[Rfam]
RNA sequence: ACAAUAUCAAUUUGUAAGUCGCUCUGGAUAAGAGCGUCUGCUAAAUUACUUAAA
Number, nucleotide and partner (000 for none) at each position: 001a000002c000003a000004a000005u000006a000007u000008c000009a000010a000011u000012u000013u043014g041015u040016a039017a000018g000019u000020c036021g035022c034023u033024c032025u031026g000027g000028a000029u000030a000031a025032g024033a023034g022035c021036g020037u000038c000039u016040g015041c014042u000043a013044a000045a000046u000047u000048a000049c000050u000051u000052a000053a000054a000
UnaL2 LINE 3' element: a 54-nucleotide sequence from Salmo trutta. Taxonomically the source falls in Salmo (Eukaryota, Opisthokonta, Vertebrata, Salmonidae). From the family's description: The eel long interspersed element (LINE) UnaL2 and its partner short interspersed element (SINE) share a conserved 3' tail containing a stem-loop that is critical for their retrotransposition. Presumably, the first step of retrotransposition is the recognition of their 3' tails by UnaL2-encoded reverse transcriptase. The solution structure of a 17-nucleotide RNA derived from the 3' tail of UnaL2 was determined by NMR.